[Rfam]
Shown here is a 114-nucleotide sequence from Granulicatella balaenopterae, a member of the family "FMN riboswitch aptamer (RFN element)". Its family is annotated with FMN binding in the Gene Ontology. The RFN element is a highly conserved domain that is found frequently in the 5'-untranslated regions of prokaryotic mRNAs that encode for flavin mononucleotide (FMN) biosynthesis and transport proteins.
RNA sequence: AAACAUUUUCGGGGCAAGGUGAGAUUCCUGACCGGUGGUAAAAGUCCACGAGCUGAGGCAUGAUUUGGUGUAAUUCCAAAACCGAUAGUAUAGUCUAGAUGAGAGAAAAUGCAA
Numbered sequence: 001a002a003a004c005a006u007u008u009u010c011g012g013g014g015c016a017a018g019g020u021g022a023g024a025u026u027c028c029u030g031a032c033c034g035g036u037g038g039u040a041a042a043a044g045u046c047c048a049c050g051a052g053c054u055g056a057g058g059c060a061u062g063a064u065u066u067g068g069u070g071u072a073a074u075u076c077c078a079a080a081a082c083c084g085a086u087a088g089u090a091u092a093g094u095c096u097a098g099a100u101g102a103g104a105g106a107a108a109a110u111g112c113a114a
Stems, first nucleotide, its partner, number of pairs: 004111007017029003031094002033084002035049004044082002054058001064080005086097003